RNA sequence: GUGUAAGAUGCGUUAUUUAUGUCUACAUAACUUACACAGUCGUGAUCUGAUUAUAUCAUCGUGCCUGUUUGUAUGCAAUAUAAAAGAACCUGGUAAACUAUCCAGGUUCUUUUUUGA
Numbered sequence: 001g002u003g004u005a006a007g008a009u010g011c012g013u014u015a016u017u018u019a020u021g022u023c024u025a026c027a028u029a030a031c032u033u034a035c036a037c038a039g040u041c042g043u044g045a046u047c048u049g050a051u052u053a054u055a056u057c058a059u060c061g062u063g064c065c066u067g068u069u070u071g072u073a074u075g076c077a078a079u080a081u082a083a084a085a086g087a088a089c090c091u092g093g094u095a096a097a098c099u100a101u102c103c104a105g106g107u108u109c110u111u112u113u114u115u116g117a
Stems, first nucleotide, its partner, number of pairs: 034072003037067001041061002082113012

A member of the RNA family "Bacillus sRNA ncr1015" from Fontibacillus phaseoli, 117 nucleotides long. By type it is a small RNA.